RNA: Yersinia sRNA 141
RNA sequence: CUUUGCCUUUUUGUUUCCCAGCCAGCCAGCCGACUUGUAAACCUAACGGCUCCAGCCAUUGACGAAAAGUAUUGGCAUGCUGUUCAGCCAGUAACUCAGUGGGAGCCAUCAACGCGACCUGCUUACCGUGGGCAAUAGCACGCAGUGCGGCCAGUGCGGCAACCAAUGUUUUACCCGAGCCGACAUCUCCUUGAAUCAACCGCAUCAUAGGGAAAUCAUGGGUCAUAUCUUGUUCGAUUUCCGCGACAACCCGCU
Numbered sequence: 001c002u003u004u005g006c007c008u009u010u011u012u013g014u015u016u017c018c019c020a021g022c023c024a025g026c027c028a029g030c031c032g033a034c035u036u037g038u039a040a041a042c043c044u045a046a047c048g049g050c051u052c053c054a055g056c057c058a059u060u061g062a063c064g065a066a067a068a069g070u071a072u073u074g075g076c077a078u079g080c081u082g083u084u085c086a087g088c089c090a091g092u093a094a095c096u097c098a099g100u101g102g103g104a105g106c107c108a109u110c111a112a113c114g115c116g117a118c119c120u121g122c123u124u125a126c127c128g129u130g131g132g133c134a135a136u137a138g139c140a141c142g143c144a145g146u147g148c149g150g151c152c153a154g155u156g157c158g159g160c161a162a163c164c165a166a167u168g169u170u171u172u173a174c175c176c177g178a179g180c181c182g183a184c185a186u187c188u189c190c191u192u193g194a195a196u197c198a199a200c201c202g203c204a205u206c207a208u209a210g211g212g213a214a215a216u217c218a219u220g221g222g223u224c225a226u227a228u229c230u231u232g233u234u235c236g237a238u239u240u241c242c243g244c245g246a247c248a249a250c251c252c253g254c255u
Base pairs, nucleotide, nucleotide: 002215003214004213006211007210012093013092014091015090018087021085027082028081029080030079032076034074037072038071039070042064043061045059048057049056050055095132096131097130098129102127103126105124110121111120136153138151139150141147142146154205155204156203157202158201159200164193165192166191168189177187178186219253220252221251222250223249228246229245230243232241